Background:
Group II catalytic intron D1-D4-6: a 283-nucleotide RNA from Candidatus Methanogaster sp. The base pairs follow the family's consensus structure. Rfam describes the family as follows. Group II introns are found in rRNA, tRNA and mRNA of organelles in fungi, plants and protists, and also in mRNA in bacteria. It scores 86 bits against the family's covariance model.

Nucleotides: 283
Stems, first nucleotide, its partner, number of pairs: 012039002015037003022032003042094003049087002052083001053079003056075008131274006151268004156264001157183003162177004188263006195256004
Number, partner (000 for none) and nucleotide at each position: 001000a002000a003000a004000a005000u006000c007000a008000g009000a010000g011000c012039c013038u014000c015037g016036a017035g018000g019000a020000a021000a022032g023031g024030u025000u026000a027000g028000c029000c030024a031023c032022c033000a034000c035017c036016u037015c038013a039012g040000a041000a042094c043093u044092a045000a046000a047000a048000a049087c050086c051000c052083g053079c054078a055077c056075g057074c058073a059072g060071u061070c062069c063068g064000g065000u066000a067000a068063c069062g070061g071060g072059c073058u074057g075056c076000u077055g078054u079053g080000a081000a082000g083052c084000u085000g086050g087049g088000g089000g090000g091000a092044u093043g094042g095000g096000a097000u098000a099000c100000c101000a102000g103000g104000c105000c106000a107000c108000a109000a110000u111000c112000g113000a114000a115000a116000a117000g118000g119000u120000g121000a122000a123000g124000g125000u126000u127000a128000u129000a130000a131274g132273c133272c134271c135270c136269g137000a138000a139000a140000u141000u142000c143000u144000u145000a146000u147000g148000a149000u150000u151268c152267u153266g154265g155000a156264a157183g158182c159181c160000g161000a162177c163176g164175u165174u166000u167000u168000c169000a170000g171000u172000g173000u174165g175164a176163c177162g178000g179000a180000a181159g182158g183157c184000a185000g186000c187000a188263u189262u190261c191260g192259c193258a194000c195256c196255a197254c198253c199000g200000u201000u202000a203000g204000u205000c206000c207000a208000a209000u210000c211000c212000u213000c214000c215000g216000g217000u218000c219000u220000u221000g222000g223000a224000a225000u226000a227000u228000a229000g230000c231000a232000g233000a234000g235000a236000g237000c238000u239000c240000u241000g242000g243000g244000a245000c246000a247000u248000u249000g250000c251000g252000a253198g254197g255196u256195g257000a258193u259192g260191u261190g262189a263188g264156u265154c266153c267152a268151g269136u270135g271134g272133g273132g274131u275000c276000u277000c278000a279000g280000a281000c282000c283000g